[Rfam]
RNA sequence: UGAGUCCUCCGACGUGACACAACAUCCUGCAGCGGUGUUGUGCGACCUGCAGUGUCAGUUGGCGGACUCG
Numbered sequence: 001u002g003a004g005u006c007c008u009c010c011g012a013c014g015u016g017a018c019a020c021a022a023c024a025u026c027c028u029g030c031a032g033c034g035g036u037g038u039u040g041u042g043c044g045a046c047c048u049g050c051a052g053u054g055u056c057a058g059u060u061g062g063c064g065g066a067c068u069c070g
Stems, first nucleotide, its partner, number of pairs: 001070007009062005021039006044056003
Rfam assigns this 70-nucleotide RNA from Aspergillus thermomutatus to the family "bZIP non canonical Hac1/Xbp1 intron". NCBI's taxonomy places the organism under Eukaryota, Fungi, Dikarya, Eurotiomycetidae, Aspergillus subgen. Fumigati. The sequence is in the family's curated seed alignment. Rfam describes the family as follows. bZIP intron RNA is a non-canonical intron that was first reported in HAC1 gene in yeast and XBP1 gene in Metazoa. The literature on the family includes a 2018 paper in mSphere by Iracane et al., "Identification of an Exceptionally Long Intron in the HAC1 Gene of Candida parapsilosis". Rfam 15.1 lists 1,325 matches to the family in 1,320 species.